[Rfam]
RNA sequence: CCUCCCGCUUUCCCUCCCUGAGCGGGUGCCGGCCACAAGACCGGCUUUCCUACCCCAGCCACCUCCCCUUUGGCUGGGGUAUUUUAU
Number, nucleotide and partner (000 for none) at each position: 001c000002c000003u000004c026005c025006c024007g023008c022009u021010u000011u000012c000013c000014c000015u000016c000017c000018c000019u000020g000021a009022g008023c007024g006025g005026g004027u000028g045029c044030c043031g042032g041033c000034c039035a000036c000037a000038a000039g034040a000041c032042c031043g030044g029045c028046u000047u000048u000049c000050c000051u000052a000053c079054c078055c077056c076057a075058g074059c073060c072061a000062c000063c000064u000065c000066c000067c000068c000069u000070u000071u000072g060073g059074c058075u057076g056077g055078g054079g053080u000081a000082u000083u000084u000085u000086a000087u000
This 87-nucleotide sequence from Chitinimonas taiwanensis belongs to the Rfam family "Burkholderia RNA 7 (anti-hemB)". A reference for the family is Weinberg et al. (2007), "Identification of 22 candidate structured RNAs in bacteria using the CMfinder comparative genomics pipeline", Nucleic Acids Res. This RNA motif was identified by computational search in b-proteobacteria Burkholderia. It scores 62 bits against the family's covariance model.